A member of the RNA family "Small nucleolar RNA SNORD63" from Piprites chloris, 69 nucleotides long. The base pairs follow the family's consensus structure, which was predicted with PFOLD. snoRNA U63 is found in both humans and mice. It is annotated as a C/D-box small nucleolar RNA. Taxonomically the source falls in Piprites (Eukaryota, Euteleostomi, Dipnotetrapodomorpha, Amniota).
RNA sequence: GUGCCAUGAUGUCAGCUGUCAACACAUCAUUCUGAAGAAUUUUGUGGAGACUUUGUGAAACUGAGCACC
Numbered sequence: 001g002u003g004c005c006a007u008g009a010u011g012u013c014a015g016c017u018g019u020c021a022a023c024a025c026a027u028c029a030u031u032c033u034g035a036a037g038a039a040u041u042u043u044g045u046g047g048a049g050a051c052u053u054u055g056u057g058a059a060a061c062u063g064a065g066c067a068c069c
Base pairs, nucleotide, nucleotide: 001068002067003066004065